This 49-nucleotide RNA sequence belongs to the Rfam family "nhaA-I RNA".
Rfam describes the family as follows. Acidobacteria, Alphaproteobacteria, Betaproteobacteria and Gammaproteobacteria, Verrucomicrobia, cand. division NC10.
Rfam's curators put it in the seed alignment.

[Rfam]
RNA sequence: GGGUGCGGCGCCCGGUGCCGCAGGAAAGAGGAUGGUCGGGCCGCCAUCU
Numbered sequence: 001g002g003g004u005g006c007g008g009c010g011c012c013c014g015g016u017g018c019c020g021c022a023g024g025a026a027a028g029a030g031g032a033u034g035g036u037c038g039g040g041c042c043g044c045c046a047u048c049u
Stems, first nucleotide, its partner, number of pairs: 005021007030049007
The base pairs follow the family's consensus structure, which is taken from published work.